[Rfam]
RNA sequence: GGGAGUGUCCGGACGCCUGGUGGGUCCCACGGUCUUCAAAACCGCUGAGGCGUUGUACCAACAGCGCCUGGUGGGUUCGAUUCCCAUCCACUCCC
Numbered sequence: 001g002g003g004a005g006u007g008u009c010c011g012g013a014c015g016c017c018u019g020g021u022g023g024g025u026c027c028c029a030c031g032g033u034c035u036u037c038a039a040a041a042c043c044g045c046u047g048a049g050g051c052g053u054u055g056u057a058c059c060a061a062c063a064g065c066g067c068c069u070g071g072u073g074g075g076u077u078c079g080a081u082u083c084c085c086a087u088c089c090a091c092u093c094c095c
Stems, first nucleotide, its partner, number of pairs: 001095007011027004016023002030044004048069007072086004
Rfam assigns this 95-nucleotide sequence from Phycisphaerae bacterium RAS1 to the family "Selenocysteine transfer RNA". Taxonomically the source falls in Phycisphaerae (Bacteria, Pseudomonadati, Planctomycetota). The family has 109 seed sequences and 4,211 matches in Rfam 15.1. A search with the family's covariance model found it, with a score of 68 bits.